[Rfam]
RNA sequence: AAAGUCCACUAGGGGCGCCAUACGGCUGAGAUAAGGAUGAAUCCUUGGUCCCUUUGAACCUGAACUGGUUAAUACCAGCGUAGGAAAGUGGAGACGGGAUAAG
Dot-bracket structure: .....(((((((((.((((....)))......(((((....))))))..)))).....((((..((((......))))..))))..)))))............
Numbered sequence: 001a002a003a004g005u006c007c008a009c010u011a012g013g014g015g016c017g018c019c020a021u022a023c024g025g026c027u028g029a030g031a032u033a034a035g036g037a038u039g040a041a042u043c044c045u046u047g048g049u050c051c052c053u054u055u056g057a058a059c060c061u062g063a064a065c066u067g068g069u070u071a072a073u074a075c076c077a078g079c080g081u082a083g084g085a086a087a088g089u090g091g092a093g094a095c096g097g098g099a100u101a102a103g
Stems, first nucleotide, its partner, number of pairs: 006091005011053004016047001017026003033046005059084004065078004